Rfam assigns this 151-nucleotide sequence from Cohnella zeiphila to the family "c-di-AMP riboswitch aptamer (ydaO/yuaA leader)". The source organism's lineage runs through Bacteria, Bacillati, Bacillota, Bacilli and Cohnella.
[Rfam]
RNA sequence: AAUAGUACUACGCUUAAUUCCCGGUGCCGAUCGGGAAGCGGGGGAACCAAUCAUUGGGGCGAAUUGCGGCGGCCGAGCGAUCGGAUGCGGCAUAGGGUACCAUCUGACCCGAGCCCGACAGCUAACCUCGUCAGCAGUGGAUGGGUCAAUU
Numbered sequence: 001a002a003u004a005g006u007a008c009u010a011c012g013c014u015u016a017a018u019u020c021c022c023g024g025u026g027c028c029g030a031u032c033g034g035g036a037a038g039c040g041g042g043g044g045a046a047c048c049a050a051u052c053a054u055u056g057g058g059g060c061g062a063a064u065u066g067c068g069g070c071g072g073c074c075g076a077g078c079g080a081u082c083g084g085a086u087g088c089g090g091c092a093u094a095g096g097g098u099a100c101c102a103u104c105u106g107a108c109c110c111g112a113g114c115c116c117g118a119c120a121g122c123u124a125a126c127c128u129c130g131u132c133a134g135c136a137g138u139g140g141a142u143g144g145g146u147c148a149a150u151u
Stems, first nucleotide, its partner, number of pairs: 012135003018037008038131006048056002057116003065092003095110004